Rfam assigns this 153-nucleotide RNA from Striga hermonthica to the family "small nucleolar RNA snoR134". For this family Rfam cites "Mining small RNA sequencing data: a new approach to identify small nucleolar RNAs in Arabidopsis" (Chen and Wu, Nucleic Acids Res, 2009). Rfam classes the family as an H/ACA-box small nucleolar RNA. The match comes from Rfam's covariance-model search (92 bits).
RNA sequence: UCGCACGUAGCUACCCCGGGCUCCUCUGAAAUUCACAGAUGUAGAAAGAAGCCCCAAUGCUAGUGCCAAAUUUUCGCCCUUUAGUGUUGCAGAUUUGCCCCUUUUGUACCUUUUAUUCCACGGCUCAUCUGUGUCAAAUAAUCGGCUAAAUUU
Numbered sequence: 001u002c003g004c005a006c007g008u009a010g011c012u013a014c015c016c017c018g019g020g021c022u023c024c025u026c027u028g029a030a031a032u033u034c035a036c037a038g039a040u041g042u043a044g045a046a047a048g049a050a051g052c053c054c055c056a057a058u059g060c061u062a063g064u065g066c067c068a069a070a071u072u073u074u075c076g077c078c079c080u081u082u083a084g085u086g087u088u089g090c091a092g093a094u095u096u097g098c099c100c101c102u103u104u105u106g107u108a109c110c111u112u113u114u115a116u117u118c119c120a121c122g123g124c125u126c127a128u129c130u131g132u133g134u135c136a137a138a139u140a141a142u143c144g145g146c147u148a149a150a151u152u153u
Stems, first nucleotide, its partner, number of pairs: 003066004010060002018054005023048001025045003076146003081141002085136002088133006097124003